[Rfam]
Rfam assigns this 181-nucleotide sequence from Gordonia hirsuta to the family "FMN riboswitch aptamer (RFN element)".
RNA sequence: CAGAGUUCUCGGGGCGGGGUGCAAGUCCCCACCGGCGGUAAUGGCCGCCUGUGAGUUCACUCACAGAAGGCCCAAGCCCGCGAGCGCCCGGAUCCACGGCAGCAGCCGAGGUGUCCGGGGUCAGCAGAUUCCGGUGCGAUUCCGGAGCCGACGGUGACAGUCCGGAUACGAGAGGACACCC
Numbered sequence: 001c002a003g004a005g006u007u008c009u010c011g012g013g014g015c016g017g018g019g020u021g022c023a024a025g026u027c028c029c030c031a032c033c034g035g036c037g038g039u040a041a042u043g044g045c046c047g048c049c050u051g052u053g054a055g056u057u058c059a060c061u062c063a064c065a066g067a068a069g070g071c072c073c074a075a076g077c078c079c080g081c082g083a084g085c086g087c088c089c090g091g092a093u094c095c096a097c098g099g100c101a102g103c104a105g106c107c108g109a110g111g112u113g114u115c116c117g118g119g120g121u122c123a124g125c126a127g128a129u130u131c132c133g134g135u136g137c138g139a140u141u142c143c144g145g146a147g148c149c150g151a152c153g154g155u156g157a158c159a160g161u162c163c164g165g166a167u168a169c170g171a172g173a174g175g176a177c178a179c180c181c
Base pairs, nucleotide, nucleotide: 003179005177006176007175008174009173010172017029018028019027031161032160033150034149035081036080037079038078076148077147084125085124130146131145132144133143134142152164153163154162
It scores 85 bits against the family's covariance model.